[Rfam]
A member of the RNA family "DUF3800-VI RNA", 51 nucleotides long. Rfam classes the family as a cis-regulatory element.
RNA sequence: GGUUGGGAGGGCUGCAUUGUCGGUCCGCUGGGAAAAAUUCCCACCUGGCUA
Numbered sequence: 001g002g003u004u005g006g007g008a009g010g011g012c013u014g015c016a017u018u019g020u021c022g023g024u025c026c027g028c029u030g031g032g033a034a035a036a037a038u039u040c041c042c043a044c045c046u047g048g049c050u051a
Stems, first nucleotide, its partner, number of pairs: 001050007009026006029043005